Notes:
A member of the RNA family "RT-12 RNA" from Pseudomonas syringae, 113 nucleotides long. Rfam's curators put it in the seed alignment. It is annotated as a small RNA. Pairs were carried over by alignment from the consensus structure, which is taken from published work.
RNA sequence: UAGCAAUCGCGGUGAGGCCGGGUAACCGGUUAGAUGGUGUGAAGAACAUUUGGGUUUAUCCGACCGAGCGGCUGAAGGAUUGCCGCCAUCCUAUGCUCGGUCGGUUGGCUCGA
Numbered sequence: 001u002a003g004c005a006a007u008c009g010c011g012g013u014g015a016g017g018c019c020g021g022g023u024a025a026c027c028g029g030u031u032a033g034a035u036g037g038u039g040u041g042a043a044g045a046a047c048a049u050u051u052g053g054g055u056u057u058a059u060c061c062g063a064c065c066g067a068g069c070g071g072c073u074g075a076a077g078g079a080u081u082g083c084c085g086c087c088a089u090c091c092u093a094u095g096c097u098c099g100g101u102c103g104g105u106u107g108g109c110u111c112g113a
Base pairs, nucleotide, nucleotide: 009086010085011084012083013082017030018029019028020027021026037049038048039047040046050113051112052111053110054109055108056107060104061103062102063101064100065099066098067097068096069095076092077091078090079089080088